RNA sequence: GUGCAAAUUCUCUGUGUUCUGUGACUUCGUUUGAGCAUGUAAAAGUGCGAGAAGCUGCAGCCUUAAGCGUUUGCCUAACGGUUUUUUUAAGACUUUGGGGUCUUAUCUUGUUUUGCGACCAUUUGGGU
Numbered sequence: 001g002u003g004c005a006a007a008u009u010c011u012c013u014g015u016g017u018u019c020u021g022u023g024a025c026u027u028c029g030u031u032u033g034a035g036c037a038u039g040u041a042a043a044a045g046u047g048c049g050a051g052a053a054g055c056u057g058c059a060g061c062c063u064u065a066a067g068c069g070u071u072u073g074c075c076u077a078a079c080g081g082u083u084u085u086u087u088u089a090a091g092a093c094u095u096u097g098g099g100g101u102c103u104u105a106u107c108u109u110g111u112u113u114u115g116c117g118a119c120c121a122u123u124u125g126g127g128u
Base pairs, nucleotide, nucleotide: 003074004073005072006071007070008069019060020059021058022057023056025054026053027052028051035048036047037046038045088105089104090103091102092101093100094099
The record is a 128-nucleotide sequence from Campylobacter avium, which matches "purD RNA motif" in Rfam. The match comes from Rfam's covariance-model search (92 bits). NCBI's taxonomy places the organism under Bacteria, Pseudomonadati, Epsilonproteobacteria, Campylobacter, Campylobacter avium. The base pairs follow the family's consensus structure, which is taken from published work. For this family Rfam cites "Identification of 22 candidate structured RNAs in bacteria using the CMfinder comparative genomics pipeline" (Weinberg et al., Nucleic Acids Res, 2007).